[Rfam]
RNA sequence: UGUCGUCCAAAGCCCUUUUUCUGUUGUACUACUGGAAAUUAAAAUGAGCAGUGCAAUAUUAAAAGGGCAUUGGCUGGCA
Number, nucleotide and partner (000 for none) at each position: 001u079002g078003u077004c000005g074006u000007c073008c072009a071010a070011a000012g068013c067014c066015c065016u064017u063018u062019u061020u000021c000022u058023g057024u056025u055026g054027u053028a052029c051030u050031a000032c000033u000034g000035g000036a000037a000038a000039u000040u000041a000042a000043a000044a000045u000046g000047a000048g000049c000050a030051g029052u028053g027054c026055a025056a024057u023058a022059u000060u000061a019062a018063a017064a016065g015066g014067g013068c012069a000070u010071u009072g008073g007074c005075u000076g000077g003078c002079a001
RNA: mir-130 microRNA precursor family
Organism: Scleropages formosus